[Rfam]
RNA sequence: AGAGCUUCAUGUGACUGACGGAAUCAGCAGGAGUACCUGCGGGAAGCAUGAGGAAUAUGGAAAGCCGACCGUCUGGGCAGCCGCA
Number, nucleotide and partner (000 for none) at each position: 001a000002g000003a000004g000005c053006u052007u051008c050009a049010u048011g047012u046013g000014a000015c043016u042017g073018a072019c071020g070021g069022a000023a000024u000025c000026a000027g000028c039029a038030g037031g036032a000033g000034u000035a000036c031037c030038u029039g028040c000041g000042g016043g015044a000045a000046g012047c011048a010049u009050g008051a007052g006053g005054a000055a000056u000057a000058u000059g000060g000061a000062a000063a000064g078065c077066c076067g000068a000069c021070c020071g019072u018073c017074u000075g000076g066077g065078c064079a000080g000081c000082c000083g000084c000085a000

Overview:
ZMP/ZTP riboswitch aptamer (pfl RNA motif): an 85-nucleotide RNA sequence from Roseburia sp. CAG:380. Gene Ontology terms of the family: regulation of purine nucleotide biosynthetic process and one-carbon metabolic process.